The record is an 80-nucleotide sequence from Synaphobranchus kaupii, which matches "mir-17 microRNA precursor family" in Rfam. This family represents the microRNA (miRNA) precursor mir-17, family, which includes mir-20, mir-91, and mir-103. miRNAs are transcribed as ~70nt precursors (modelled here) and subsequently processed by the Dicer enzyme to give a ~22nt product. In this case the mature sequence comes from the 3' arm of the precursor. Rfam 15.1 lists 4,687 matches to the family in 648 species. It scores 70 bits against the family's covariance model.
RNA sequence: AGUAUUGUGUCAAAGUGCUUACAGUGCAGGUAGUAACUAUGGAAUAUCUACUGCAGUGAAGGCACUUCUAGCUCUGUACU
Numbered sequence: 001a002g003u004a005u006u007g008u009g010u011c012a013a014a015g016u017g018c019u020u021a022c023a024g025u026g027c028a029g030g031u032a033g034u035a036a037c038u039a040u041g042g043a044a045u046a047u048c049u050a051c052u053g054c055a056g057u058g059a060a061g062g063c064a065c066u067u068c069u070a071g072c073u074c075u076g077u078a079c080u
Stems, first nucleotide, its partner, number of pairs: 004077002007074001009072002013067008022058002025055003029052005